Group II catalytic intron D1-D4-7: a 146-nucleotide RNA from Vibrio agarilyticus.

[Rfam]
RNA sequence: CCAACUUUGUAGCAAGUUGUAGCCUAGGGAUAGUGCGAAUCUGGUAACGGAUUGGUGCGAAGCUUCCUGACAAUGUACCCCCUGAAAAGGUGCAAUUUCUGCGUGAGCAGUAUUGUAGAUAUUGCUAAUGACAAGCGAUUGAGGGG
Numbered sequence: 001c002c003a004a005c006u007u008u009g010u011a012g013c014a015a016g017u018u019g020u021a022g023c024c025u026a027g028g029g030a031u032a033g034u035g036c037g038a039a040u041c042u043g044g045u046a047a048c049g050g051a052u053u054g055g056u057g058c059g060a061a062g063c064u065u066c067c068u069g070a071c072a073a074u075g076u077a078c079c080c081c082c083u084g085a086a087a088a089g090g091u092g093c094a095a096u097u098u099c100u101g102c103g104u105g106a107g108c109a110g111u112a113u114u115g116u117a118g119a120u121a122u123u124g125c126u127a128a129u130g131a132c133a134a135g136c137g138a139u140u141g142a143g144g145g146g
Base pairs, nucleotide, nucleotide: 002019003018004017005016006015007014027068028067029066030065033058034057035056036055038053039052040051041050042049043048081090082089083088091117092116093115094114101108102107121139122138123137124136125135126134
Description:
Rfam 15.1 lists 1,296 matches to the family in 705 species. Group II introns are found in rRNA, tRNA and mRNA of organelles in fungi, plants and protists, and also in mRNA in bacteria. The match comes from Rfam's covariance-model search (107 bits).